[Rfam]
RNA sequence: AGCAGGGACGUGGCGACCAUGGUAGAAGCGUUCUCGUCGCGAUCCCUUUCAGGCUUUAAACAGAGCCGGCGAAUUCUAAC
Numbered sequence: 001a002g003c004a005g006g007g008a009c010g011u012g013g014c015g016a017c018c019a020u021g022g023u024a025g026a027a028g029c030g031u032u033c034u035c036g037u038c039g040c041g042a043u044c045c046c047u048u049u050c051a052g053g054c055u056u057u058a059a060a061c062a063g064a065g066c067c068g069g070c071g072a073a074u075u076c077u078a079a080c
Stems, first nucleotide, its partner, number of pairs: 013046001015044002018041001021080001023078005028040003050069001052067005

A member of the RNA family "Mammalian CPEB3 ribozyme" from Muraenolepis orangiensis, 80 nucleotides long. For this family Rfam cites "A genomewide search for ribozymes reveals an HDV-like sequence in the human CPEB3 gene" (Salehi-Ashtiani et al., Science, 2006). From the family's description: The mammalian CPEB3 ribozyme is a self cleaving RNA located in the second intron of the CPEB3 gene which belongs to a family of genes regulating messenger RNA polyadenylation. It scores 41 bits against the family's covariance model. The source organism's lineage runs through Eukaryota, Chordata, Zeiogadaria, Gadiformes and Muraenolepis.